Rfam assigns this 130-nucleotide sequence to the family "Small nucleolar RNA snoR74". A reference for the family is Marker et al. (2002), "Experimental RNomics: identification of 140 candidates for small non-messenger RNAs in the plant Arabidopsis thaliana", Curr Biol. Pairs were carried over by alignment from the consensus structure, which was predicted with WAR. Gene Ontology terms of the family: nucleolus and RNA processing. The sequence is in the family's curated seed alignment.
RNA sequence: AAAAAAGUAGGGAUCUGGUGCAAUUUCUGAACAUGCCUCUUGUAAACUUUAGGGAUAAGGAUAUGCAAUGUUAUUUGGUGAACUUGUUGAGUUGUCCUGAUGAUUGAUAGUUCAGUAAAGUGCGUGAGUA
Dot-bracket structure: ....(((...((.(.((..............)).).))........)))................((...((......((((((........................))))))...)).))........
Numbered sequence: 001a002a003a004a005a006a007g008u009a010g011g012g013a014u015c016u017g018g019u020g021c022a023a024u025u026u027c028u029g030a031a032c033a034u035g036c037c038u039c040u041u042g043u044a045a046a047c048u049u050u051a052g053g054g055a056u057a058a059g060g061a062u063a064u065g066c067a068a069u070g071u072u073a074u075u076u077g078g079u080g081a082a083c084u085u086g087u088u089g090a091g092u093u094g095u096c097c098u099g100a101u102g103a104u105u106g107a108u109a110g111u112u113c114a115g116u117a118a119a120g121u122g123c124g125u126g127a128g129u130a
Stems, first nucleotide, its partner, number of pairs: 005049003011038002014035001016033002066122002071119002079114006